Shown here is a 90-nucleotide RNA, a member of the family "freshwater-2 RNA".
[Rfam]
RNA sequence: AGCCGCAUAUUGUGGCGGACUUAUGCUGUUUAACCCACAGCGUACCGGAUAGAACCCGGAUUGGACUACUUAUAUAGGAGAAAACAAAUG
Numbered sequence: 001a002g003c004c005g006c007a008u009a010u011u012g013u014g015g016c017g018g019a020c021u022u023a024u025g026c027u028g029u030u031u032a033a034c035c036c037a038c039a040g041c042g043u044a045c046c047g048g049a050u051a052g053a054a055c056c057c058g059g060a061u062u063g064g065a066c067u068a069c070u071u072a073u074a075u076a077g078g079a080g081a082a083a084a085c086a087a088a089u090g
Stems, first nucleotide, its partner, number of pairs: 002016005022044007045059004
Annotation:
The sequence is in the family's curated seed alignment.